[Rfam]
This 95-nucleotide sequence from Halcyon senegalensis belongs to the Rfam family "Small nucleolar RNA SNORD21".
A reference for the family is Renalier et al. (1996), "SnoRNA U21 is also intron-encoded in Drosophila melanogaster but in a different host-gene as compared to warm-blooded vertebrates", FEBS Lett.
Pairs were carried over by alignment from the consensus structure, which was predicted with PFOLD.
Gene Ontology terms of the family: RNA processing and nucleolus.
Lineage of the source: Eukaryota > Chordata > Teleostomi > Coelurosauria > Halcyon.

RNA sequence: GCUACAUGAUGAUACUCCCAAUGCCUGAACACUGUAGUUGGUCCGCAGUGUGUGUAUGAUGUACUACACUGUUUCAAGACGGGACUGAUGGCAGC
Dot-bracket structure: ((((....................................................................................))))...